[Rfam]
RNA sequence: UUGGCUUUGCUGUUUUACUGGAGGCCAAUUAUUAUUGUUAUGUUUUUGGUCAGUGGAUUGUAAAGCAAGAUUAUAAAUUAGGUUCCUCUCGCUAUCCACUGCUUGUAAAUUUAAUUUAGCAAUUGGACGUCGAGGAAUUACAUUU
Numbered sequence: 001u002u003g004g005c006u007u008u009g010c011u012g013u014u015u016u017a018c019u020g021g022a023g024g025c026c027a028a029u030u031a032u033u034a035u036u037g038u039u040a041u042g043u044u045u046u047u048g049g050u051c052a053g054u055g056g057a058u059u060g061u062a063a064a065g066c067a068a069g070a071u072u073a074u075a076a077a078u079u080a081g082g083u084u085c086c087u088c089u090c091g092c093u094a095u096c097c098a099c100u101g102c103u104u105g106u107a108a109a110u111u112u113a114a115u116u117u118a119g120c121a122a123u124u125g126g127a128c129g130u131c132g133a134g135g136a137a138u139u140a141c142a143u144u145u
Base pairs, nucleotide, nucleotide: 001070002069004066005065008062009061010060012058013057016055017054019052020051024050025049026048027047028046031045082138083137084136085135086134087133088132090129091128095127096126097125098124105117107115
Dot-bracket structure: ((.((..(((.((..((.((...(((((..(.............)))))))).)).)).)))..))..))...........(((((((.((...((((......(.(.......).)......))))))..))))))).......

Small nucleolar RNA snoR136: a 145-nucleotide RNA sequence from Rhynchospora breviuscula. For this family Rfam cites "Mining small RNA sequencing data: a new approach to identify small nucleolar RNAs in Arabidopsis" (Chen and Wu, Nucleic Acids Res, 2009). Taxonomically the source falls in Rhynchospora (Eukaryota, Petrosaviidae, commelinids, Cyperaceae). It scores 60 bits against the family's covariance model. Gene Ontology terms of the family: RNA processing and nucleolus. Rfam 15.1 lists 452 matches to the family in 212 species.